[Rfam]
RNA sequence: AUUGAUUAUAGGGGUCAUUUUAGAAGCGUGCUCGUCGCGACCCCUCCUAGCCCUUUCCAGGGCUGCAAUUAUACA
Number, nucleotide and partner (000 for none) at each position: 001a000002u000003u000004g000005a000006u000007u000008a000009u000010a000011g044012g043013g042014g041015u040016c039017a000018u000019u075020u000021u073022a072023g000024a070025a069026g038027c037028g036029u000030g000031c000032u000033c000034g000035u000036c028037g027038c026039g016040a015041c014042c013043c012044c011045u000046c000047c000048u065049a064050g063051c062052c061053c060054u059055u000056u000057c000058c000059a054060g053061g052062g051063c050064u049065g048066c000067a000068a000069u025070u024071a000072u022073a021074c000075a019
Rfam assigns this 75-nucleotide sequence from Parnassius apollo to the family "Mammalian CPEB3 ribozyme". NCBI's taxonomy places the organism under Eukaryota, Panarthropoda, Amphiesmenoptera, Glossata, Parnassius.